[Rfam]
RNA sequence: AAAAGUAACUGGGGGAGUCCAUCUUGCUGGGCUGAGAGGACGGAAGCGAUGACCGUCGACCCUUUGCACCUGAUCCAGAUCAUGCUGGCGCAGGGAAGUGGUUACAGGCGGAU
Numbered sequence: 001a002a003a004a005g006u007a008a009c010u011g012g013g014g015g016a017g018u019c020c021a022u023c024u025u026g027c028u029g030g031g032c033u034g035a036g037a038g039g040a041c042g043g044a045a046g047c048g049a050u051g052a053c054c055g056u057c058g059a060c061c062c063u064u065u066g067c068a069c070c071u072g073a074u075c076c077a078g079a080u081c082a083u084g085c086u087g088g089c090g091c092a093g094g095g096a097a098g099u100g101g102u103u104a105c106a107g108g109c110g111g112a113u
Base pairs, nucleotide, nucleotide: 006101008099009098010097011063012062013061014060017032018031019030020029021028039057040056041055042054043053069094070093071092072091075088076087077086078085